[Rfam]
RNA: SAM riboswitch aptamer (S box leader)
Organism: Planococcus lenghuensis
RNA sequence: CUCUUAUCGAGAGAGGCGGAGGGAAUAGGCCCGAUGAUGCCCGGCAACCACCAAGCUGCUGCUUGGAAUGGUGCUACGUCCUACAGAUUGCAACUGAUCUGACAGAUGAGAG
Numbered sequence: 001c002u003c004u005u006a007u008c009g010a011g012a013g014a015g016g017c018g019g020a021g022g023g024a025a026u027a028g029g030c031c032c033g034a035u036g037a038u039g040c041c042c043g044g045c046a047a048c049c050a051c052c053a054a055g056c057u058g059c060u061g062c063u064u065g066g067a068a069u070g071g072u073g074c075u076a077c078g079u080c081c082u083a084c085a086g087a088u089u090g091c092a093a094c095u096g097a098u099c100u101g102a103c104a105g106a107u108g109a110g111a112g
Base pairs, nucleotide, nucleotide: 001112002111003110004109005108006107007106008105013042015041016040017039021032022031023030026083027082028081029080043075044074045073046072048071049070051066052065053064079104084101085100086099087098088097089096